[Rfam]
RNA: U4 spliceosomal RNA
RNA sequence: AGCUUUGCACAGUGGCAGGAUCGCAGCCAAUGAGGUUUAUCCAAGGCACAAUUAUUGCUAAUUGAAAACGUUUCCUAACACACCGCCAUGACAGCUCGAAAUAUAGUUGGCAUUGGCAAUUUUUGAUAGUCUCUACGGAGA
Numbered sequence: 001a002g003c004u005u006u007g008c009a010c011a012g013u014g015g016c017a018g019g020a021u022c023g024c025a026g027c028c029a030a031u032g033a034g035g036u037u038u039a040u041c042c043a044a045g046g047c048a049c050a051a052u053u054a055u056u057g058c059u060a061a062u063u064g065a066a067a068a069c070g071u072u073u074c075c076u077a078a079c080a081c082a083c084c085g086c087c088a089u090g091a092c093a094g095c096u097c098g099a100a101a102u103a104u105a106g107u108u109g110g111c112a113u114u115g116g117c118a119a120u121u122u123u124u125g126a127u128a129g130u131c132u133c134u135a136c137g138g139a140g141a
Stems, first nucleotide, its partner, number of pairs: 020052002023049001026047003034042002085117003088113003092109005130141004